[Rfam]
Source information: The family of this 251-nucleotide part of an RNA from Haloglomus irregulare is "Archaeal large subunit ribosomal RNA". The organism belongs to Haloglomus, within Archaea.
RNA sequence: CGGUGCUUGACGGGAACGAUCGUAUAGUACGAGAGGAACUACGAUCGGUGGCCACUGGUGUACCGGUUGUCCGAGAGGGCAUGUGCCGGGCAGCUACGCCACACGGGGUAAGAGCUGAACGCAUCUAAGCUCGAAACCCACCUGGAAAAGAAGCACCGCUGAGGACGCUCGUACAAGACGAGUUCGAUAGACUCGGGGUGUACGCACCGAGGUAACGAGGUGUUCAGCCCGCGAGAACUAACCGUCCAAAG
Number, nucleotide and partner (000 for none) at each position: 001c158002g157003g156004u155005g154006c153007u152008u151009g000010a000011c144012g143013g142014g141015a000016a000017c047018g046019a045020u044021c043022g042023u041024a040025u000026a000027g000028u000029a000030c000031g000032a000033g000034a000035g000036g000037a000038a000039c000040u024041a023042c022043g021044a020045u019046c018047g017048g102049u101050g100051g099052c098053c000054a000055c000056u096057g095058g094059u000060g000061u000062a000063c089064c088065g087066g086067u085068u081069g080070u079071c078072c077073g000074a000075g000076a000077g072078g071079g070080c069081a068082u000083g000084u000085g067086c066087c065088g064089g063090g000091c000092a000093g000094c058095u057096a056097c000098g052099c051100c050101a049102c048103a000104c000105g139106g138107g137108g000109u000110a000111a000112g132113a131114g130115c129116u128117g000118a000119a000120c000121g000122c000123a000124u000125c000126u000127a000128a116129g115130c114131u113132c112133g000134a000135a000136a000137c107138c106139c105140a000141c014142c013143u012144g011145g000146a000147a000148a000149a000150g000151a008152a007153g006154c005155a004156c003157c002158g001159c000160u000161g000162a000163g247164g246165a245166c244167g183168c182169u181170c180171g179172u000173a000174c000175a000176a000177g000178a000179c171180g170181a169182g168183u167184u000185c000186g000187a000188u240189a239190g238191a000192c235193u234194c233195g232196g230197g229198g228199u000200g000201u000202a000203c000204g223205c222206a221207c220208c219209g000210a000211g216212g000213u000214a000215a000216c211217g000218a000219g208220g207221u206222g205223u204224u000225c000226a000227g000228c198229c197230c196231g000232c195233g194234a193235g192236a000237a000238c190239u189240a188241a000242c000243c000244g166245u165246c164247c163248a000249a000250a000251g000